[Rfam]
RNA: Glutamine-II riboswitch aptamer
Organism: Parasynechococcus marenigrum
RNA sequence: CAACGUUCACCUCUCCUCGCGGGAGGCGCAGACAAGCCAGGCCAUGGAACGGGGACCUGGA
Dot-bracket structure: ...(((((.(((((.......)))))..........[[[[[[[...))))).]].]]]]].